Shown here is a 152-nucleotide RNA from Ipomoea nil, a member of the family "small nucleolar RNA snoR135". Its family is annotated with RNA processing and nucleolus in the Gene Ontology. A search with the family's covariance model found it, with a score of 63 bits. Lineage of the source: Eukaryota > eudicotyledons > asterids > lamiids > Ipomoea.
[Rfam]
RNA sequence: UGAGCAGGGAUAUGUGUGUAUCGGCUCAUUGACACUGUUCCCUACAAAACUAUGUAUUGGACCGUUCCCUACAAAACUAUGUAUUGGGGAAGAUGGGCAGUUGUGUUUUGUCCUUACGUUCAAAUCUUUCAACAAUCAUCCACCUUACAUUU
Number, nucleotide and partner (000 for none) at each position: 001u000002g000003a000004g072005c000006a070007g069008g068009g067010a066011u000012a000013u000014g000015u000016g057017u056018g055019u054020a053021u052022c000023g000024g000025c000026u000027c000028a000029u000030u000031g000032a000033c000034a000035c000036u000037g000038u000039u000040c000041c000042c000043u000044a000045c000046a000047a000048a000049a000050c000051u000052a021053u020054g019055u018056a017057u016058u000059g000060g000061a000062c000063c000064g000065u000066u010067c009068c008069c007070u006071a000072c004073a000074a000075a000076a000077c000078u000079a000080u000081g000082u000083a000084u000085u000086g146087g145088g144089g143090a000091a000092g140093a139094u138095g137096g136097g000098c000099a000100g133101u132102u131103g130104u000105g000106u000107u000108u000109u000110g000111u000112c000113c000114u000115u000116a000117c000118g000119u000120u000121c000122a000123a000124a000125u000126c000127u000128u000129u000130c103131a102132a101133c100134a000135a000136u096137c095138a094139u093140c092141c000142a000143c089144c088145u087146u086147a000148c000149a000150u000151u000152u000